[Rfam]
The record is a 63-nucleotide RNA, which matches "RAGATH-30 RNA" in Rfam. The family's consensus secondary structure is taken from published work. By type it is a small RNA.

RNA sequence: GUAAAAAUAAGAAUUAUAUUUAUCGAAUUGGCUUGUGUAAACAAGAGCUGCUAGGUGCAGUUA
Numbered sequence: 001g002u003a004a005a006a007a008u009a010a011g012a013a014u015u016a017u018a019u020u021u022a023u024c025g026a027a028u029u030g031g032c033u034u035g036u037g038u039a040a041a042c043a044a045g046a047g048c049u050g051c052u053a054g055g056u057g058c059a060g061u062u063a
Stems, first nucleotide, its partner, number of pairs: 032045005047061005